The record is a 68-nucleotide RNA sequence from Laodelphax striatellus, which matches "mir-965 microRNA precursor family" in Rfam. A reference for the family is Huang et al. (2012), "The regulation of silkworm fibroin L chain production by miRNA-965 and miRNA-1926 in insect cells", Bioorg Khim.
[Rfam]
RNA sequence: AACAGAACGGGAAAGGUUAUAGCGAUUAUGCUUUUAAUGCAUAAGCGUAUAGCUUUUCCCCUUUUGAA
Numbered sequence: 001a002a003c004a005g006a007a008c009g010g011g012a013a014a015g016g017u018u019a020u021a022g023c024g025a026u027u028a029u030g031c032u033u034u035u036a037a038u039g040c041a042u043a044a045g046c047g048u049a050u051a052g053c054u055u056u057u058c059c060c061c062u063u064u065u066g067a068a
Base pairs, nucleotide, nucleotide: 003066004065005064006063007062009060010059011058013056014055017052018051019050020049021048026044027043028042029041030040
Rfam links the family to the GO terms RISC complex and miRNA-mediated post-transcriptional gene silencing.
The match comes from Rfam's covariance-model search (62 bits).